[Rfam]
RNA sequence: ACUCAAACCGCAUACGAAAUUCGUAUAACCUCGCAACAGGGCGAGGGUAUCUACGGGAAGCCUUAACUUCCUAACUACGAAUACGGAAUUAUCUUCA
Numbered sequence: 001a002c003u004c005a006a007a008c009c010g011c012a013u014a015c016g017a018a019a020u021u022c023g024u025a026u027a028a029c030c031u032c033g034c035a036a037c038a039g040g041g042c043g044a045g046g047g048u049a050u051c052u053a054c055g056g057g058a059a060g061c062c063u064u065a066a067c068u069u070c071c072u073a074a075c076u077a078c079g080a081a082u083a084c085g086g087a088a089u090u091a092u093c094u095u096c097a
Base pairs, nucleotide, nucleotide: 019082020081021080022079023078024077025076029046030045031044032043033042034041055072056071057070058069059068060067
The family of this 97-nucleotide RNA sequence from Paenibacillus albus is "Purine riboswitch aptamer". The organism belongs to Paenibacillus, within Bacteria.